A member of the RNA family "MIR1120/MIR1122 microRNA precursor family" from Triticum aestivum, 87 nucleotides long. NCBI's taxonomy places the organism under Eukaryota, Embryophyta, Euphyllophyta, Magnoliopsida, Triticum. Pairs were carried over by alignment from the consensus structure, which was predicted with RNAalifold. The literature on the family includes a 2007 paper in Genome Biol by Yao et al., "Cloning and characterization of microRNAs from wheat (Triticum aestivum L.)".

RNA sequence: GUACUCCCUCCAUCCCAAAAUAUAAGAACGGUUUUUACACUAUACCAGUGUCAAAAACGUUCUUAUAUUUUGGGACAGAGGGAGUAG
Numbered sequence: 001g002u003a004c005u006c007c008c009u010c011c012a013u014c015c016c017a018a019a020a021u022a023u024a025a026g027a028a029c030g031g032u033u034u035u036u037a038c039a040c041u042a043u044a045c046c047a048g049u050g051u052c053a054a055a056a057a058c059g060u061u062c063u064u065a066u067a068u069u070u071u072g073g074g075a076c077a078g079a080g081g082g083a084g085u086a087g
Base pairs, nucleotide, nucleotide: 003085004084005083007081008080009079010078013075014074015073016072017071019069020068021067022066023065024064025063026062027061028060029059030058032056033055034054035053037051038050039049040048041047